Shown here is a 77-nucleotide RNA from Fischerella sp. PCC 9339, a member of the family "CyVA-1 RNA". About the family: Cyanobacteria, Acidobacteria (1 example), Verrucomicrobia (1 example). By type it is a small RNA. Rfam's curators put it in the seed alignment. The family's consensus secondary structure is taken from published work. The organism belongs to Fischerella, within Bacteria.

[Rfam]
RNA sequence: GCACUGGCAGAACGUUUUACCGUUGUGGUUCUUUGCUACUUUUGGAAGGAGAGCGACGUCACAAAAGUAGACAGUGC
Numbered sequence: 001g002c003a004c005u006g007g008c009a010g011a012a013c014g015u016u017u018u019a020c021c022g023u024u025g026u027g028g029u030u031c032u033u034u035g036c037u038a039c040u041u042u043u044g045g046a047a048g049g050a051g052a053g054c055g056a057c058g059u060c061a062c063a064a065a066a067g068u069a070g071a072c073a074g075u076g077c
Base pairs, nucleotide, nucleotide: 001077002076003075004074005073006072009032010031011030012029037069038068039067040066041065042064043063044062
Dot-bracket structure: ((((((..((((................))))....((((((((.................))))))))..))))))